RNA sequence: GUUGCUUCUUACUGGUGAACGCUUUCAGAUUUAACAAUGAGAGAUGUUCAUGUUUCCGAAGCAUAAAUUUAAUUCAUAGCCAGUUUUAAACAGCGCUGUGCAUUUUCUUAUAUUGCAGUGCACUACCUGUCUCCUGGUAUAUUU
Numbered sequence: 001g002u003u004g005c006u007u008c009u010u011a012c013u014g015g016u017g018a019a020c021g022c023u024u025u026c027a028g029a030u031u032u033a034a035c036a037a038u039g040a041g042a043g044a045u046g047u048u049c050a051u052g053u054u055u056c057c058g059a060a061g062c063a064u065a066a067a068u069u070u071a072a073u074u075c076a077u078a079g080c081c082a083g084u085u086u087u088a089a090a091c092a093g094c095g096c097u098g099u100g101c102a103u104u105u106u107c108u109u110a111u112a113u114u115g116c117a118g119u120g121c122a123c124u125a126c127c128u129g130u131c132u133c134c135u136g137g138u139a140u141a142u143u144u
Stems, first nucleotide, its partner, number of pairs: 003063006016050005022043004079138005092124002094120005
Dot-bracket structure: ..((((((.......(((((.((((..............))))..))))).......))))))...............(((((........(((((((.................)))))..)).........)))))......

This 144-nucleotide RNA sequence from Gossypium raimondii belongs to the Rfam family "small nucleolar RNA snoR137".
For this family Rfam cites "Mining small RNA sequencing data: a new approach to identify small nucleolar RNAs in Arabidopsis" (Chen and Wu, Nucleic Acids Res, 2009).
The family's consensus secondary structure was predicted with RNAalifold.